[Rfam]
RNA sequence: CAGCGCACUCCGGGGUCGGUGAAAGUCCGAACCGGCGGUUACAGUCCGCGACCCGGUCGCCUCCAGCGACCGGUUGACCAGGUGAAAUUCCUGGACCGACGGUUAAAGUCCGGAUGGGAGGCAGUGCGC
Numbered sequence: 001c002a003g004c005g006c007a008c009u010c011c012g013g014g015g016u017c018g019g020u021g022a023a024a025g026u027c028c029g030a031a032c033c034g035g036c037g038g039u040u041a042c043a044g045u046c047c048g049c050g051a052c053c054c055g056g057u058c059g060c061c062u063c064c065a066g067c068g069a070c071c072g073g074u075u076g077a078c079c080a081g082g083u084g085a086a087a088u089u090c091c092u093g094g095a096c097c098g099a100c101g102g103u104u105a106a107a108g109u110c111c112g113g114a115u116g117g118g119a120g121g122c123a124g125u126g127c128g129c
Stems, first nucleotide, its partner, number of pairs: 003127004009121002017029003031109002033098002035049004044096002053073002078094005100112003